[Rfam]
RNA: Small nucleolar RNA ACA64
Organism: Crypturellus soui
RNA sequence: ACGGUCUGAAAGUCACCGCGGGCCUCCCGUGGCUCCCGGUGAGAUAACUGUGCCCACAGCAUAGGGGACAUUAAGCUUAUUGCCCACUGCGCUGGUGUGUGGGCAGUGAAACCCAUGUUCCUAUAACU
Numbered sequence: 001a002c003g004g005u006c007u008g009a010a011a012g013u014c015a016c017c018g019c020g021g022g023c024c025u026c027c028c029g030u031g032g033c034u035c036c037c038g039g040u041g042a043g044a045u046a047a048c049u050g051u052g053c054c055c056a057c058a059g060c061a062u063a064g065g066g067g068a069c070a071u072u073a074a075g076c077u078u079a080u081u082g083c084c085c086a087c088u089g090c091g092c093u094g095g096u097g098u099g100u101g102g103g104c105a106g107u108g109a110a111a112c113c114c115a116u117g118u119u120c121c122u123a124u125a126a127c128u
Stems, first nucleotide, its partner, number of pairs: 006050001008048001010045001013042004021034004065121001067119005077109005085099003